The family of this 91-nucleotide sequence from Octodon degus is "Small nucleolar SNORD12/SNORD106". The family's consensus secondary structure was predicted with RNAalifold. Rfam classes the family as a C/D-box small nucleolar RNA. A search with the family's covariance model found it, with a score of 88 bits. The literature on the family includes a 2003 paper in Nucleic Acids Res by Vitali et al., "Identification of 13 novel human modification guide RNAs". Taxonomically the source falls in Octodon (Eukaryota, Opisthokonta, Tetrapoda, Euarchontoglires).

RNA sequence: GCUGGUGUAAAUGAUGACUACACUUUUUUCCCCGUCUUAUCGACAAUGCUGACCUUUCAGUAUACUUGCCAGUUACUCCUGAUACGCCAGC
Numbered sequence: 001g002c003u004g005g006u007g008u009a010a011a012u013g014a015u016g017a018c019u020a021c022a023c024u025u026u027u028u029u030c031c032c033c034g035u036c037u038u039a040u041c042g043a044c045a046a047u048g049c050u051g052a053c054c055u056u057u058c059a060g061u062a063u064a065c066u067u068g069c070c071a072g073u074u075a076c077u078c079c080u081g082a083u084a085c086g087c088c089a090g091c
Base pairs, nucleotide, nucleotide: 001091002090003089004088005087006086007085008084009083

The family is grouped with related families in Rfam's "SNORD12 clan".